[Rfam]
Notes
This 69-nucleotide sequence from Flavobacterium commune belongs to the Rfam family "DUF805 RNA". The match comes from Rfam's covariance-model search (70 bits). By type it is a cis-regulatory element. The source organism's lineage runs through Bacteria, Pseudomonadati, Flavobacteriia, Flavobacteriaceae and Flavobacterium.
RNA sequence: ACAAGGUGGAAACCAGCGACCACGAUAAAAAACGGGGCAAUUCCGAAAAGCCAAAAGAGUAGGAAACUA
Numbered sequence: 001a002c003a004a005g006g007u008g009g010a011a012a013c014c015a016g017c018g019a020c021c022a023c024g025a026u027a028a029a030a031a032a033c034g035g036g037g038c039a040a041u042u043c044c045g046a047a048a049a050g051c052c053a054a055a056a057g058a059g060u061a062g063g064a065a066a067c068u069a
Stems, first nucleotide, its partner, number of pairs: 006023004036052003043063002
Rfam 15.1 lists 281 matches to the family in 219 species.